[Rfam]
RNA: Small nucleolar RNA SNORA55
Organism: Pelusios castaneus
RNA sequence: UCGUCAGAAUCUUUCCCAUUCCUUGCAGUACAGUGCGGGCCUGGGGACACGUGGUGCUAACAGCAAAGCAGAGUAAAUCCAGACUUCUCUCUCAUUGAGGGCGUCUUUCUAAUGCUGCAACAGCU
Numbered sequence: 001u002c003g004u005c006a007g008a009a010u011c012u013u014u015c016c017c018a019u020u021c022c023u024u025g026c027a028g029u030a031c032a033g034u035g036c037g038g039g040c041c042u043g044g045g046g047a048c049a050c051g052u053g054g055u056g057c058u059a060a061c062a063g064c065a066a067a068g069c070a071g072a073g074u075a076a077a078u079c080c081a082g083a084c085u086u087c088u089c090u091c092u093c094a095u096u097g098a099g100g101g102c103g104u105c106u107u108u109c110u111a112a113u114g115c116u117g118c119a120a121c122a123g124c125u
Stems, first nucleotide, its partner, number of pairs: 002056004013047006021039002068118004073113001081106004087099003